[Rfam]
RNA sequence: UGACGUUGAAGCAAGUGAUGGGGUCAGCAUCCGUACACUUGUGGAGUCUUGUAUUAGGGUUAAGCGGUUUCCACAGGCUGAUGUAGGGUUAAACCCGAAAGAAAACGCUGUUG
Numbered sequence: 001u002g003a004c005g006u007u008g009a010a011g012c013a014a015g016u017g018a019u020g021g022g023g024u025c026a027g028c029a030u031c032c033g034u035a036c037a038c039u040u041g042u043g044g045a046g047u048c049u050u051g052u053a054u055u056a057g058g059g060u061u062a063a064g065c066g067g068u069u070u071c072c073a074c075a076g077g078c079u080g081a082u083g084u085a086g087g088g089u090u091a092a093a094c095c096c097g098a099a100a101g102a103a104a105a106c107g108c109u110g111u112u113g
Base pairs, nucleotide, nucleotide: 002048003047004046011042012041013040014039015038016037017036018034019033020032021031024081025080026079027078064108065107066106086096087095088094089093